[Rfam]
Shown here is a 217-nucleotide RNA from Sarcina sp. DSM 11001, a member of the family "Group II catalytic intron D1-D4-6".

RNA sequence: GGAAACCCCAUCCGGUAAGGACUAACCAAUCCACCGGUAGCGAGUCUUGGAACCGAAGCGGUAACGUUAGGUUUAAGCGUAGACAGUUAGGUGGCAGGGACGGCUAUUGAGCGCCGAAAUACCCAAUUCGCAGGGCAAUGCUGUUGUCAGAGCAGAAGCCAACAUGUGAAGUAUCGUUUUGGUGAGAUGCUUUACACUGCGGCGGCGUCGGAAGGAU
Numbered sequence: 001g002g003a004a005a006c007c008c009c010a011u012c013c014g015g016u017a018a019g020g021a022c023u024a025a026c027c028a029a030u031c032c033a034c035c036g037g038u039a040g041c042g043a044g045u046c047u048u049g050g051a052a053c054c055g056a057a058g059c060g061g062u063a064a065c066g067u068u069a070g071g072u073u074u075a076a077g078c079g080u081a082g083a084c085a086g087u088u089a090g091g092u093g094g095c096a097g098g099g100a101c102g103g104c105u106a107u108u109g110a111g112c113g114c115c116g117a118a119a120u121a122c123c124c125a126a127u128u129c130g131c132a133g134g135g136c137a138a139u140g141c142u143g144u145u146g147u148c149a150g151a152g153c154a155g156a157a158g159c160c161a162a163c164a165u166g167u168g169a170a171g172u173a174u175c176g177u178u179u180u181g182g183u184g185a186g187a188u189g190c191u192u193u194a195c196a197c198u199g200c201g202g203c204g205g206c207g208u209c210g211g212a213a214g215g216a217u
Stems, first nucleotide, its partner, number of pairs: 012037004019032003023185001025183002039088003044084004048079002050074005056068002059066002108211001109209001111208006128202006134160003139154004165196011
Lineage of the source: Bacteria > Bacillati > Bacillota > Clostridiaceae > Sarcina.